[Rfam]
RNA sequence: CGGGUUCCUCGUUACGAUGAGGCGUUUGCUCAAACACAGGCUACUGCCCGGAAACGUCGAAAGACGCCAACGGGUAGACCAGGUCUUGCCGGCUUAAGGCUUGACCCAAGGUAGCUGGUCCCCCGGGACCUACGUUGCGCACUGCCGAAAACCUACGAGAGGGGAAUCCG
Numbered sequence: 001c002g003g004g005u006u007c008c009u010c011g012u013u014a015c016g017a018u019g020a021g022g023c024g025u026u027u028g029c030u031c032a033a034a035c036a037c038a039g040g041c042u043a044c045u046g047c048c049c050g051g052a053a054a055c056g057u058c059g060a061a062a063g064a065c066g067c068c069a070a071c072g073g074g075u076a077g078a079c080c081a082g083g084u085c086u087u088g089c090c091g092g093c094u095u096a097a098g099g100c101u102u103g104a105c106c107c108a109a110g111g112u113a114g115c116u117g118g119u120c121c122c123c124c125g126g127g128a129c130c131u132a133c134g135u136u137g138c139g140c141a142c143u144g145c146c147g148a149a150a151a152c153c154u155a156c157g158a159g160a161g162g163g164g165a166a167u168c169c170g
Stems, first nucleotide, its partner, number of pairs: 005166006011156002013097001021146003027141003031137003040115005046075005055066004082106004088100003117130003
The family of this 170-nucleotide RNA sequence from Citrifermentans bemidjiense is "M-box riboswitch aptamer (ykoK leader)". For this family Rfam cites "Structure and mechanism of a metal-sensing regulatory RNA" (Dann CE 3rd et al., Cell, 2007). Rfam describes the family as follows. M-box riboswitch, also know as ykoK leader is described as a metaloregulatory RNA that sense divalent metals and function as a genetic control element of genes related to divalent metal transport in bacteria. It was first reported upstream of the B.subtilis ykoK gene and genes with related functions in other bacteria. Gene Ontology terms of the family: regulation of gene expression and response to magnesium ion. The family has 159 seed sequences and 1,095 matches in Rfam 15.1.